RNA sequence: UUGCUGUUGUGUCUUAUGGCUUUUUAUUCCUACGUGAUGUCGCUGGGUUCAUGUAGGAGUAGAAGCCACUAAACACGCGGUGA
Dot-bracket structure: .((((((.((((.(..(((((((..((((((((((((...........)))))))))))).)))))))..).)))))))))).
This 83-nucleotide sequence from Neogobius melanostomus belongs to the Rfam family "mir-135 microRNA precursor family".
Rfam 15.1 lists 2,125 matches to the family in 647 species.
The base pairs follow the family's consensus structure, which was predicted with PFOLD.
It scores 60 bits against the family's covariance model.
On this family, see Lagos-Quintana et al., Curr Biol 2002: "Identification of tissue-specific microRNAs from mouse".